RNA sequence: GGUUGGCCUGAGUGCAGUGGUGUUUACAACUAAUCGAUCACAACCACUUACAGAUUCCUUUGUUCCUUCUCCACUCCCACUGCUUCACUGGACCAGCCUAAA
Numbered sequence: 001g002g003u004u005g006g007c008c009u010g011a012g013u014g015c016a017g018u019g020g021u022g023u024u025u026a027c028a029a030c031u032a033a034u035c036g037a038u039c040a041c042a043a044c045c046a047c048u049u050a051c052a053g054a055u056u057c058c059u060u061u062g063u064u065c066c067u068u069c070u071c072c073a074c075u076c077c078c079a080c081u082g083c084u085u086c087a088c089u090g091g092a093c094c095a096g097c098c099u100a101a102a
Stems, first nucleotide, its partner, number of pairs: 001098006008091001011089001014086001016081005022076001028064003032060002
RNA: Y RNA
Organism: Propithecus coquereli